RNA: MIR161 microRNA precursor family
RNA sequence: UUUAUUGCUUCGAUCAAUGCACUGAAAGUGACUACACCAGGAUUUGUUUUUAAGUUUUUGCUCUCAUCUAUAUGAUAAAGAUGAAAAUUAGCCUCUGAUGUAGUCACUUUCAAUGCGUUGAUCAUAGCAUG
Numbered sequence: 001u002u003u004a005u006u007g008c009u010u011c012g013a014u015c016a017a018u019g020c021a022c023u024g025a026a027a028g029u030g031a032c033u034a035c036a037c038c039a040g041g042a043u044u045u046g047u048u049u050u051u052a053a054g055u056u057u058u059u060g061c062u063c064u065c066a067u068c069u070a071u072a073u074g075a076u077a078a079a080g081a082u083g084a085a086a087a088u089u090a091g092c093c094u095c096u097g098a099u100g101u102a103g104u105c106a107c108u109u110u111c112a113a114u115g116c117g118u119u120g121a122u123c124a125u126a127g128c129a130u131g
Base pairs, nucleotide, nucleotide: 006129007128008127009126012123013122014121015120016119017118018117019116020115021114023112024111025110026109027108028107029106030105031104032103033102034101035100036099038097039096040095041094043086044085045084046082047081048080049079050078051077052076